[Rfam]
RNA sequence: CGAAGACAUCCCGAGUGGCCUCGUCUGGUGACGAGGCGCAGCAACCUGCCAACGACCGGCAAGGUGCUUGUGCGCAGCGGCGCAGAUGUGGCCACGCAAGGUUGCGAGGCAACGAACAGUCGCCCCG
Numbered sequence: 001c002g003a004a005g006a007c008a009u010c011c012c013g014a015g016u017g018g019c020c021u022c023g024u025c026u027g028g029u030g031a032c033g034a035g036g037c038g039c040a041g042c043a044a045c046c047u048g049c050c051a052a053c054g055a056c057c058g059g060c061a062a063g064g065u066g067c068u069u070g071u072g073c074g075c076a077g078c079g080g081c082g083c084a085g086a087u088g089u090g091g092c093c094a095c096g097c098a099a100g101g102u103u104g105c106g107a108g109g110c111a112a113c114g115a116a117c118a119g120u121c122g123c124c125c126c127g
Stems, first nucleotide, its partner, number of pairs: 006089005015039001018037008040068003045064003048060003054120001091110003
RNA: SAM-I/IV (S-adenosyl methionine) riboswitch aptamer